MIR159 microRNA precursor family: a 235-nucleotide RNA sequence from Corymbia citriodora. Its family is annotated with miRNA-mediated post-transcriptional gene silencing and RISC complex in the Gene Ontology. On this family, see Rajagopalan et al., Genes Dev 2006: "A diverse and evolutionarily fluid set of microRNAs in Arabidopsis thaliana". Rfam 15.1 lists 3,649 matches to the family in 242 species.

[Rfam]
RNA sequence: GUAUGGGGAAGGGAGCUCCCUUCAGUCCAAUAUAAAGGGCCGAGACGCGGAUAGAGCUGCCAUCUCAUGCACAGAGCUAUGCUCAAUCGUUUUGAUGCUAGUUUUAGGGAUCAAUCAAGUCUGGGUGAUCAAUCAUUCAAAGGUUGAGUCUAGCUAGGUGCAUGGUGUGGGAGCAACUCCUUUCGCUGUGCUCCGCUCAUUGAUUGGACUGAAGGGAGCUCCUACAGCACCUCUC
Numbered sequence: 001g002u003a004u005g006g007g008g009a010a011g012g013g014a015g016c017u018c019c020c021u022u023c024a025g026u027c028c029a030a031u032a033u034a035a036a037g038g039g040c041c042g043a044g045a046c047g048c049g050g051a052u053a054g055a056g057c058u059g060c061c062a063u064c065u066c067a068u069g070c071a072c073a074g075a076g077c078u079a080u081g082c083u084c085a086a087u088c089g090u091u092u093u094g095a096u097g098c099u100a101g102u103u104u105u106a107g108g109g110a111u112c113a114a115u116c117a118a119g120u121c122u123g124g125g126u127g128a129u130c131a132a133u134c135a136u137u138c139a140a141a142g143g144u145u146g147a148g149u150c151u152a153g154c155u156a157g158g159u160g161c162a163u164g165g166u167g168u169g170g171g172a173g174c175a176a177c178u179c180c181u182u183u184c185g186c187u188g189u190g191c192u193c194c195g196c197u198c199a200u201u202g203a204u205u206g207g208a209c210u211g212a213a214g215g216g217a218g219c220u221c222c223u224a225c226a227g228c229a230c231c232u233c234u235c
Base pairs, nucleotide, nucleotide: 013221014220015219016218017217018216019215020214023211024210025209026208027207028206029205057173058172060170061169062168066164067163068162069161070160071159072158